[Rfam]
RNA sequence: GGGAACCUGACGCUCACGGCACGGUGACCAGCUCGGUCGCCCACGGCAUCGUGCUGAGCGAGUGGCGAGACCGGCUCGGGAGUCC
Numbered sequence: 001g002g003g004a005a006c007c008u009g010a011c012g013c014u015c016a017c018g019g020c021a022c023g024g025u026g027a028c029c030a031g032c033u034c035g036g037u038c039g040c041c042c043a044c045g046g047c048a049u050c051g052u053g054c055u056g057a058g059c060g061a062g063u064g065g066c067g068a069g070a071c072c073g074g075c076u077c078g079g080g081a082g083u084c085c
Base pairs, nucleotide, nucleotide: 001083006078009075011060012059013058019054020053021052022051023050024049025048026047035072036071037068038067039066040065041064
Description:
A member of the RNA family "c-di-GMP-II-GAG riboswitch aptamer", 85 nucleotides long. The family is grouped with related families in Rfam's "c-di-GMP_II riboswitch clan". The family's consensus secondary structure is taken from published work. Rfam links the family to the GO terms regulation of gene expression and cyclic-di-GMP binding.